[Rfam]
RNA: Bacterial large subunit ribosomal RNA, nucleotides 1689 to 2023
Organism: Trichococcus palustris
RNA sequence: CGAGAGAACUCUCGUUAAGGAACUCGGCAAAAUGACCCCGUAACUUCGGGAGAAGGGGUGCUGACCGCAAGGUCAGCCGCAGUGAAUAGGCCCAAGCGACUGUUUAUCAAAAACACAGGUCUCUGCAAAAUCGAAAGAUGACGUAUAGGGGCUGACGCCUGCCCGGUGCUGGAAGGUUAAGAGGAGAGGUUAGCGCAAGCGAAGCUUUGAAUUGAAGCCCCAGUAAACGGCGGCCGUAACUAUAACGGUCCUAAGGUAGCGAAAUUCCUUGUCGGGUAAGUUCCGACCCGCACGAAAGGCGUAACGAUUUGGGCACUGUCUCAACGAGAGACUCG
Numbered sequence: 001c002g003a004g005a006g007a008a009c010u011c012u013c014g015u016u017a018a019g020g021a022a023c024u025c026g027g028c029a030a031a032a033u034g035a036c037c038c039c040g041u042a043a044c045u046u047c048g049g050g051a052g053a054a055g056g057g058g059u060g061c062u063g064a065c066c067g068c069a070a071g072g073u074c075a076g077c078c079g080c081a082g083u084g085a086a087u088a089g090g091c092c093c094a095a096g097c098g099a100c101u102g103u104u105u106a107u108c109a110a111a112a113a114c115a116c117a118g119g120u121c122u123c124u125g126c127a128a129a130a131u132c133g134a135a136a137g138a139u140g141a142c143g144u145a146u147a148g149g150g151g152c153u154g155a156c157g158c159c160u161g162c163c164c165g166g167u168g169c170u171g172g173a174a175g176g177u178u179a180a181g182a183g184g185a186g187a188g189g190u191u192a193g194c195g196c197a198a199g200c201g202a203a204g205c206u207u208u209g210a211a212u213u214g215a216a217g218c219c220c221c222a223g224u225a226a227a228c229g230g231c232g233g234c235c236g237u238a239a240c241u242a243u244a245a246c247g248g249u250c251c252u253a254a255g256g257u258a259g260c261g262a263a264a265u266u267c268c269u270u271g272u273c274g275g276g277u278a279a280g281u282u283c284c285g286a287c288c289c290g291c292a293c294g295a296a297a298g299g300c301g302u303a304a305c306g307a308u309u310u311g312g313g314c315a316c317u318g319u320c321u322c323a324a325c326g327a328g329a330g331a332c333u334c335g
Stems, first nucleotide, its partner, number of pairs: 001335004009330008018321003035059005044049001060077007078082001090314007097306002101115003118153008126143001130139003156301004161231003166228002168224005175219003181213002186208005193200002232250006251255001261288001271287006